[Rfam]
RNA sequence: GAUUUUGGUAGAGGCGCAUUUUUUAAGAGUACAUAGCAGGAUAUGGCAGAACAUAAAGGAUUGCUGUGGAAAGGAAAAGAUGCCGAAAUAAAGAAAAAUUUUGCUUUUUCUUUGUUGGGCAUGCAGUUAAGAGCUGUGUGACUGUCAUCAAGAAAUUGAUGGAGUGCUGCCUGAAGA
Numbered sequence: 001g002a003u004u005u006u007g008g009u010a011g012a013g014g015c016g017c018a019u020u021u022u023u024u025a026a027g028a029g030u031a032c033a034u035a036g037c038a039g040g041a042u043a044u045g046g047c048a049g050a051a052c053a054u055a056a057a058g059g060a061u062u063g064c065u066g067u068g069g070a071a072a073g074g075a076a077a078a079g080a081u082g083c084c085g086a087a088a089u090a091a092a093g094a095a096a097a098a099u100u101u102u103g104c105u106u107u108u109u110c111u112u113u114g115u116u117g118g119g120c121a122u123g124c125a126g127u128u129a130a131g132a133g134c135u136g137u138g139u140g141a142c143u144g145u146c147a148u149c150a151a152g153a154a155a156u157u158g159a160u161g162g163a164g165u166g167c168u169g170c171c172u173g174a175a176g177a
Base pairs, nucleotide, nucleotide: 007171008170009169010168011167016083017082018081019080020079021078022077023076024075032068033067034066035065036064037063038062039061087116088115089114090113091112092111093110094109095108096107097106098105117143118142120140121139122138123137124136125135126134127133145162146161147160148159149158150157151156
The family of this 177-nucleotide sequence from Anaerocolumna jejuensis is "Lysine riboswitch aptamer". Pairs were carried over by alignment from the consensus structure, which is taken from published work. Taxonomically the source falls in Anaerocolumna jejuensis (Bacteria, Bacillati, Lachnospirales, Anaerocolumna).